[Rfam]
About this RNA:
This 114-nucleotide RNA from Chitinophaga ginsengisegetis belongs to the Rfam family "SAM riboswitch aptamer (S box leader)". The family's consensus secondary structure is taken from published work. NCBI's taxonomy places the organism under Bacteria, Pseudomonadati, Chitinophagia, Chitinophagaceae, Chitinophaga. Gene Ontology term of the family: regulation of gene expression. From the family's description: The SAM riboswitch is found upstream of a number of genes which code for proteins involved in methionine or cysteine biosynthesis in Gram-positive bacteria.
RNA sequence: AGCUUAUCAAGAAAGGAGGAGGGACAUGGCCCGACGAUACCUUAGCAACCAUCACUGUGCAAACAGUGAAAGGUGCUGCAUCCAUCCCGGUUUACGGACCAGGAAAGAUAAGUC
Numbered sequence: 001a002g003c004u005u006a007u008c009a010a011g012a013a014a015g016g017a018g019g020a021g022g023g024a025c026a027u028g029g030c031c032c033g034a035c036g037a038u039a040c041c042u043u044a045g046c047a048a049c050c051a052u053c054a055c056u057g058u059g060c061a062a063a064c065a066g067u068g069a070a071a072g073g074u075g076c077u078g079c080a081u082c083c084a085u086c087c088c089g090g091u092u093u094a095c096g097g098a099c100c101a102g103g104a105a106a107g108a109u110a111a112g113u114c
Stems, first nucleotide, its partner, number of pairs: 002113007013043004021032003026085004044077004049073002052069004081106001086103002089100003